mir-290 microRNA precursor family: a 68-nucleotide sequence from Mesocricetus auratus.
Rfam links the family to the GO terms miRNA-mediated post-transcriptional gene silencing and RISC complex.
RNA sequence: GCCGUACUCAAAAUGGAGGCCCUCUCCGGGCCUUGGGAAGGGGAAAGUGCUUCCAUUUUGUGUGCGGC
Numbered sequence: 001g002c003c004g005u006a007c008u009c010a011a012a013a014u015g016g017a018g019g020c021c022c023u024c025u026c027c028g029g030g031c032c033u034u035g036g037g038a039a040g041g042g043g044a045a046a047g048u049g050c051u052u053c054c055a056u057u058u059u060g061u062g063u064g065c066g067g068c
Base pairs, nucleotide, nucleotide: 004065005064006063007062009060010059011058012057013056014055015054016053017052018051019050020049022047023046025044026043027042
About this RNA:
A reference for the family is Suh et al. (2004), "Human embryonic stem cells express a unique set of microRNAs", Dev Biol. Its Rfam clan is "mir-290 clan". Pairs were carried over by alignment from the consensus structure, which was predicted with RNAalifold. It scores 58 bits against the family's covariance model.